[Rfam]
RNA sequence: AAUCACGGUGAUGGUAACCAGGACUCCCUGACCUGUACAGGCCUCUGCUAUGGGGGUGAUGUCCAGUCCUAGUGUCUGAGUGAUU
Numbered sequence: 001a002a003u004c005a006c007g008g009u010g011a012u013g014g015u016a017a018c019c020a021g022g023a024c025u026c027c028c029u030g031a032c033c034u035g036u037a038c039a040g041g042c043c044u045c046u047g048c049u050a051u052g053g054g055g056g057u058g059a060u061g062u063c064c065a066g067u068c069c070u071a072g073u074g075u076c077u078g079a080g081u082g083a084u085u
Stems, first nucleotide, its partner, number of pairs: 001085006010076003017073002020070006027061001029059001031057004038052002040049003
RNA: Small nucleolar RNA SNORD86